[Rfam]
RNA sequence: GGAGAAGGACAGGUGGUCGCCGGCUCGUCAUCAGGACGAGCGGGAGGAAAGUCCGGGCUCCGCAGGACAGGAUGGUUCCUAACGGGAACCGGGGGCAACCCCAGGGAAAGUGCCACAGAGAGUAGACCGCCCGCCGAAGUCUUUGACGAAGGCGGGUAAGGGUGAAAGGGUGAGGUAAGAGCUCACCAGUGCCGAUGGCGACAUCGGCAGCUCGGUAAACCCCAUCCGGAGCAAGGCCGAAUAGAGGAGCGUUUGAGGGCGGUCCGUCCGAGGCUCCCGGGUCAGGCUGCUUGAGACCGUCGGCAACGGCGGUCCUAGAGGAAUGAUCAUCACCCCGCGGGGGGUAACCGCCGCGAGGAACAGAACCCGGCUUAUGGCCUUCUUCGGCC
Numbered sequence: 001g002g003a004g005a006a007g008g009a010c011a012g013g014u015g016g017u018c019g020c021c022g023g024c025u026c027g028u029c030a031u032c033a034g035g036a037c038g039a040g041c042g043g044g045a046g047g048a049a050a051g052u053c054c055g056g057g058c059u060c061c062g063c064a065g066g067a068c069a070g071g072a073u074g075g076u077u078c079c080u081a082a083c084g085g086g087a088a089c090c091g092g093g094g095g096c097a098a099c100c101c102c103a104g105g106g107a108a109a110g111u112g113c114c115a116c117a118g119a120g121a122g123u124a125g126a127c128c129g130c131c132c133g134c135c136g137a138a139g140u141c142u143u144u145g146a147c148g149a150a151g152g153c154g155g156g157u158a159a160g161g162g163u164g165a166a167a168g169g170g171u172g173a174g175g176u177a178a179g180a181g182c183u184c185a186c187c188a189g190u191g192c193c194g195a196u197g198g199c200g201a202c203a204u205c206g207g208c209a210g211c212u213c214g215g216u217a218a219a220c221c222c223c224a225u226c227c228g229g230a231g232c233a234a235g236g237c238c239g240a241a242u243a244g245a246g247g248a249g250c251g252u253u254u255g256a257g258g259g260c261g262g263u264c265c266g267u268c269c270g271a272g273g274c275u276c277c278c279g280g281g282u283c284a285g286g287c288u289g290c291u292u293g294a295g296a297c298c299g300u301c302g303g304c305a306a307c308g309g310c311g312g313u314c315c316u317a318g319a320g321g322a323a324u325g326a327u328c329a330u331c332a333c334c335c336c337g338c339g340g341g342g343g344g345u346a347a348c349c350g351c352c353g354c355g356a357g358g359a360a361c362a363g364a365a366c367c368c369g370g371c372u373u374a375u376g377g378c379c380u381u382c383u384u385c386g387g388c389c
Stems, first nucleotide, its partner, number of pairs: 001385008010376002012331007020044002023041006049373003053370005058231004065265004070227005075089005090104001091102004105222002110220002112216003127161002129157007169187006189211001190209008235288004246277005257269004295314008
Rfam assigns this 389-nucleotide RNA sequence from Geoalkalibacter ferrihydriticus to the family "Bacterial RNase P class A".
Taxonomically the source falls in Geoalkalibacter ferrihydriticus (Bacteria, Pseudomonadati, Desulfuromonadales, Geoalkalibacter).